[Rfam]
RNA sequence: UUUUAGCCCCGAUUGCAGCGACAUCCUUUUUUGAGGAGGAACGACGAAAAAAAGAUACAGCGGAAAGCGGGACCGAAA
Numbered sequence: 001u002u003u004u005a006g007c008c009c010c011g012a013u014u015g016c017a018g019c020g021a022c023a024u025c026c027u028u029u030u031u032u033g034a035g036g037a038g039g040a041a042c043g044a045c046g047a048a049a050a051a052a053a054g055a056u057a058c059a060g061c062g063g064a065a066a067g068c069g070g071g072a073c074c075g076a077a078a
Base pairs, nucleotide, nucleotide: 009070010069011068013066014065018061019060023056024055025054029051030050031049032048
RNA: Flavo-1 RNA